[Rfam]
RNA: Small nucleolar RNA U105B
Organism: Echinops telfairi
RNA sequence: UGAGAUGUGGCUGAUAACAGUAUUAUGGGUGAGACUCUGUGAUUGCUCAAUCUCAAAGUAAACGCCCGGACAAUCCCUGG
Numbered sequence: 001u002g003a004g005a006u007g008u009g010g011c012u013g014a015u016a017a018c019a020g021u022a023u024u025a026u027g028g029g030u031g032a033g034a035c036u037c038u039g040u041g042a043u044u045g046c047u048c049a050a051u052c053u054c055a056a057a058g059u060a061a062a063c064g065c066c067c068g069g070a071c072a073a074u075c076c077c078u079g080g
Stems, first nucleotide, its partner, number of pairs: 008072002010021004030049004